RNA sequence: UAUGGCCUAUGAUGGGAAAAAUACAUUUGCCUACAUUGUCUGAUCACUCUAAUAUGACAGAGAUUUGUAUAUUAUCUGAGGCCUUU
Numbered sequence: 001u002a003u004g005g006c007c008u009a010u011g012a013u014g015g016g017a018a019a020a021a022u023a024c025a026u027u028u029g030c031c032u033a034c035a036u037u038g039u040c041u042g043a044u045c046a047c048u049c050u051a052a053u054a055u056g057a058c059a060g061a062g063a064u065u066u067g068u069a070u071a072u073u074a075u076c077u078g079a080g081g082c083c084u085u086u
Stems, first nucleotide, its partner, number of pairs: 002085001004083004
Dot-bracket structure: .(.((((........................................................................)))).).
The family of this 86-nucleotide sequence from Cuscuta europaea is "Small nucleolar RNA SNORD34". Its family is annotated with nucleolus and RNA processing in the Gene Ontology. About the family: snoRNA U34 is found in intron 5 of the ribosomal protein L13a gene in humans. On this family, see Galardi et al., Mol Cell Biol 2002: "Purified box C/D snoRNPs are able to reproduce site-specific 2'-O-methylation of target RNA in vitro". Pairs were carried over by alignment from the consensus structure, which was predicted with PFOLD. Its Rfam clan is "SNORD34 clan". Rfam classes the family as a C/D-box small nucleolar RNA.